[Rfam]
RNA sequence: GGGCGGGGCCGUGACUGGCGCUGAGGUGGAGCACCACCGGGGAGCGGUCCACGCAGAGUCGUAGCCGCGCGCCUGGGUGAUUCCG
Numbered sequence: 001g002g003g004c005g006g007g008g009c010c011g012u013g014a015c016u017g018g019c020g021c022u023g024a025g026g027u028g029g030a031g032c033a034c035c036a037c038c039g040g041g042g043a044g045c046g047g048u049c050c051a052c053g054c055a056g057a058g059u060c061g062u063a064g065c066c067g068c069g070c071g072c073c074u075g076g077g078u079g080a081u082u083c084c085g
Base pairs, nucleotide, nucleotide: 003054004053005052006050007049008048009047010046011045012044015041016040017073018072019071020070021069026037027036028035029034062080064078065077066076